[Rfam]
RNA sequence: CAAGACUUGCGAGACUGGUUUUCUCUUUGGUCUUCCAGAUUUUUAUUGGAAUUCUGAGAUCAUUGUGAAAACUAAUCUCGCUGA
Numbered sequence: 001c002a003a004g005a006c007u008u009g010c011g012a013g014a015c016u017g018g019u020u021u022u023c024u025c026u027u028u029g030g031u032c033u034u035c036c037a038g039a040u041u042u043u044u045a046u047u048g049g050a051a052u053u054c055u056g057a058g059a060u061c062a063u064u065g066u067g068a069a070a071a072c073u074a075a076u077c078u079c080g081c082u083g084a
Stems, first nucleotide, its partner, number of pairs: 009081006016074008025065001028062006